RNA sequence: GGCGCCGCCGCCUCGGGCUCGCUUGGUGCAGAUCGGGACCCGCCGCCGCCGCUGCCGGGGCCGGAUCCCGCCUUGCACCAAGUGAAUCGGAGCCGGCGUAGCGC
Numbered sequence: 001g002g003c004g005c006c007g008c009c010g011c012c013u014c015g016g017g018c019u020c021g022c023u024u025g026g027u028g029c030a031g032a033u034c035g036g037g038a039c040c041c042g043c044c045g046c047c048g049c050c051g052c053u054g055c056c057g058g059g060g061c062c063g064g065a066u067c068c069c070g071c072c073u074u075g076c077a078c079c080a081a082g083u084g085a086a087u088c089g090g091a092g093c094c095g096g097c098g099u100a101g102c103g104c
Stems, first nucleotide, its partner, number of pairs: 013091002017087001019085002023081009034070005040064002
MIR168 microRNA precursor family: a 104-nucleotide RNA sequence from Oryza sativa. The sequence is in the family's curated seed alignment. Lineage of the source: Eukaryota > Viridiplantae > Liliopsida > Oryzoideae > Oryza sativa. The base pairs follow the family's consensus structure, which was predicted with WAR. Rfam links the family to the GO terms RISC complex and miRNA-mediated post-transcriptional gene silencing.